[Rfam]
RNA: DUF3800-XI RNA
RNA sequence: UGGUCUGGGCAGAAGCUCUUUGGACCACCGUAGACGGGGAGAAUUCCC
Number, nucleotide and partner (000 for none) at each position: 001u027002g026003g025004u024005c023006u022007g018008g017009g016010c015011a000012g000013a000014a000015g010016c009017u008018c007019u000020u000021u000022g006023g005024a004025c003026c002027a001028c000029c000030g000031u000032a000033g000034a000035c000036g000037g000038g000039g000040a000041g000042a000043a000044u000045u000046c000047c000048c000